[Rfam]
RNA sequence: UGGUCUGGUUCUGUGUGGAAGACUAGUGAUUUUGUUGUUUUUGACAGUUGAAUGACAACAAAUCACAGUCUGCCAUAUAGCGCAGGUCA
Numbered sequence: 001u002g003g004u005c006u007g008g009u010u011c012u013g014u015g016u017g018g019a020a021g022a023c024u025a026g027u028g029a030u031u032u033u034g035u036u037g038u039u040u041u042u043g044a045c046a047g048u049u050g051a052a053u054g055a056c057a058a059c060a061a062a063u064c065a066c067a068g069u070c071u072g073c074c075a076u077a078u079a080g081c082g083c084a085g086g087u088c089a
Stems, first nucleotide, its partner, number of pairs: 002088005008083002011080008020071005026066007034059006
The record is an 89-nucleotide RNA sequence from Callorhinchus milii, which matches "mir-7 microRNA precursor family" in Rfam. This family represents the microRNA (miRNA) precursor mir-7. Rfam 15.1 lists 2,589 matches to the family in 797 species. Pairs were carried over by alignment from the consensus structure, which was predicted with PFOLD. It scores 84 bits against the family's covariance model. On this family, see Lagos-Quintana et al., Science 2001: "Identification of novel genes coding for small expressed RNAs".